This 77-nucleotide RNA sequence from Crocodylus porosus belongs to the Rfam family "Mammalian CPEB3 ribozyme". Gene Ontology term of the family: RNA nuclease activity. NCBI's taxonomy places the organism under Eukaryota, Deuterostomia, Archelosauria, Crocodylia, Crocodylus.
Nucleotides: 077
Base pairs, nucleotide, nucleotide: 013045015044016043017042023075024074026072027071028040029039030038049066050065051064052063053062054061
Number, partner (000 for none) and nucleotide at each position: 001000g002000g003000u004000c005000a006000c007000a008000a009000g010000u011000u012000c013045g014000a015044g016043g017042c018000c019000g020000u021000a022000a023075c024074a025000a026072a027071a028040g029039u030038g031000c032000u033000c034000c035000u036000g037000g038030c039029g040028c041000a042017g043016c044015c045013c046000u047000g048000u049066c050065a051064g052063a053062u054061u055000c056000c057000a058000g059000c060000a061054a062053g063052u064051c065050u066049g067000u068000g069000a070000a071027u072026u073000c074024u075023g076000c077000c